RNA sequence: GAGACACCCUUAUGGAGCGGGACUUGUUUUAGUGGGGCUUUGGUGCUCACUGAGUCUGCCCCUUAAGUAUGUCACU
Number, nucleotide and partner (000 for none) at each position: 001g075002a000003g073004a072005c071006a070007c000008c000009c067010u066011u065012a064013u000014g062015g061016a000017g059018c058019g057020g000021g056022a055023c054024u000025u000026g000027u000028u000029u053030u052031a051032g050033u049034g048035g047036g046037g044038c043039u000040u000041u000042g000043g038044u037045g000046c036047u035048c034049a033050c032051u031052g030053a029054g023055u022056c021057u019058g018059c017060c000061c015062c014063u000064u012065a011066a010067g009068u000069a000070u006071g005072u004073c003074a000075c001076u000
mir-9229 microRNA precursor family: a 76-nucleotide sequence from Myotis lucifugus. Rfam 15.1 lists 27,225 matches to the family in 9 species. The organism belongs to Myotis, within Eukaryota.